[Rfam]
Shown here is a 57-nucleotide sequence from Ancistrocladus tectorius, a member of the family "Plastid-ndhJ 3UTR RNA". It is annotated as a cis-regulatory element.

RNA sequence: UCAUGAACUUUGUACCGCGCAUAUCAUUUAGAUGGGUUCUAGAAAGUCACGUAAUGU
Numbered sequence: 001u002c003a004u005g006a007a008c009u010u011u012g013u014a015c016c017g018c019g020c021a022u023a024u025c026a027u028u029u030a031g032a033u034g035g036g037u038u039c040u041a042g043a044a045a046g047u048c049a050c051g052u053a054a055u056g057u
Stems, first nucleotide, its partner, number of pairs: 019037002022034004
Rfam's curators write: Plastid ndhJ is a non-coding RNA (ncRNA) present in plastids. It was identified as a short stem-loop motif in the 3 prime untranslate region (3UTR) of ndhJ gene. The sequence is in the family's curated seed alignment.